Rfam assigns this 222-nucleotide sequence from Sandaracinus amylolyticus to the family "Group II catalytic intron D1-D4-6". NCBI's taxonomy places the organism under Bacteria, Myxococcota, Polyangia, Sandaracinaceae, Sandaracinus. The base pairs follow the family's consensus structure. For this family Rfam cites "The ins and outs of group II introns" (Bonen and Vogel, Trends Genet, 2001).
RNA sequence: CGAAUCCCGCCUCGGAACGUCGAGCCCGACGACCGGGAAGCGAGCCUUGCGAUCGACGCGGUAACGCGUCGGGCGAUGCGUAGGUACGCGAGCGUUCGAGCCGUGGAGUCAGCGCCGAAAUGGGGCGAUUCCGGGUGCCCAGGGUUUCACCCGACCUGAAGGCGACGGUGUCCGAUCCGCGAUUGGGCGAGGAGACGACACACCCGGCGGAGUGUGAGAGAC
Numbered sequence: 001c002g003a004a005u006c007c008c009g010c011c012u013c014g015g016a017a018c019g020u021c022g023a024g025c026c027c028g029a030c031g032a033c034c035g036g037g038a039a040g041c042g043a044g045c046c047u048u049g050c051g052a053u054c055g056a057c058g059c060g061g062u063a064a065c066g067c068g069u070c071g072g073g074c075g076a077u078g079c080g081u082a083g084g085u086a087c088g089c090g091a092g093c094g095u096u097c098g099a100g101c102c103g104u105g106g107a108g109u110c111a112g113c114g115c116c117g118a119a120a121u122g123g124g125g126c127g128a129u130u131c132c133g134g135g136u137g138c139c140c141a142g143g144g145u146u147u148c149a150c151c152c153g154a155c156c157u158g159a160a161g162g163c164g165a166c167g168g169u170g171u172c173c174g175a176u177c178c179g180c181g182a183u184u185g186g187g188c189g190a191g192g193a194g195a196c197g198a199c200a201c202a203c204c205c206g207g208c209g210g211a212g213u214g215u216g217a218g219a220g221a222c
Base pairs, nucleotide, nucleotide: 011037012036013035014034015033018031019030020029021028024188026187040089041088044085045084046083047082048080049079050075051074053072054071055070056069057068058067059066060065109216110214112213113212115210116209117208131207132206133205134204135203136202137163138162139161142157143156144155145154168201169200170199171198172197176193177192178191